[Rfam]
The record is a 188-nucleotide sequence from Acidobacterium capsulatum, which matches "6S / SsrS RNA" in Rfam. The base pairs follow the family's consensus structure, which is taken from published work. The family's RNA type in Rfam is non-coding RNA gene. It scores 59 bits against the family's covariance model. The source organism's lineage runs through Bacteria, Acidobacteriota, Terriglobia, Acidobacterium and Acidobacterium capsulatum.
RNA sequence: ACCGGCCUGCAAAGCAGGUGUGGUGGUCAACGCUGGUUGAACCUACAUUCAUUGAACAGGGAGCUCGACUCGUAUUUUGGCUCGGUGUGCAGUGUCCGCCAGUCCGGAAUGCCUAAAGAGCUACGGAGAGUUCCCACCGUCUUAGGACGGGUUCACCGGCGAACCCUGCACGGCCCCGCGGGCCGGUU
Number, nucleotide and partner (000 for none) at each position: 001a000002c186003c185004g184005g183006c182007c181008u180009g179010c178011a000012a000013a000014g174015c173016a000017g000018g171019u170020g000021u000022g000023g000024u000025g000026g000027u000028c000029a000030a000031c000032g000033c159034u158035g157036g156037u000038u155039g154040a153041a152042c151043c150044u000045a000046c000047a000048u000049u000050c000051a000052u000053u000054g000055a000056a000057c000058a000059g135060g134061g133062a000063g131064c130065u129066c128067g000068a000069c000070u125071c000072g000073u000074a000075u000076u000077u000078u123079g122080g121081c120082u119083c118084g000085g000086u000087g000088u000089g112090c111091a000092g000093u000094g000095u108096c107097c106098g105099c000100c000101a000102g000103u000104c000105c098106g097107g096108a095109a000110u000111g090112c089113c000114u000115a000116a000117a000118g083119a082120g081121c080122u079123a078124c000125g070126g000127a000128g066129a065130g064131u063132u000133c061134c060135c059136a000137c000138c000139g000140u000141c000142u000143u000144a000145g000146g000147a000148c000149g000150g043151g042152u041153u040154c039155a038156c036157c035158g034159g033160c000161g000162a000163a000164c000165c000166c000167u000168g000169c000170a019171c018172g000173g015174c014175c000176c000177c000178g010179c009180g008181g007182g006183c005184c004185g003186g002187u000188u000